[Rfam]
RNA sequence: GGAUGGAUUUCUGGGCAAUUACUCCAUUGGCAGAUGGUUUUUGAUUAAUGCCCAAUCAACUUACUGCCAAAGGAGAUUUGCCCCGUAAUGCACCG
Numbered sequence: 001g002g003a004u005g006g007a008u009u010u011c012u013g014g015g016c017a018a019u020u021a022c023u024c025c026a027u028u029g030g031c032a033g034a035u036g037g038u039u040u041u042u043g044a045u046u047a048a049u050g051c052c053c054a055a056u057c058a059a060c061u062u063a064c065u066g067c068c069a070a071a072g073g074a075g076a077u078u079u080g081c082c083c084c085g086u087a088a089u090g091c092a093c094c095g
Stems, first nucleotide, its partner, number of pairs: 005091001007089003011085001013083006022075004028069006035063002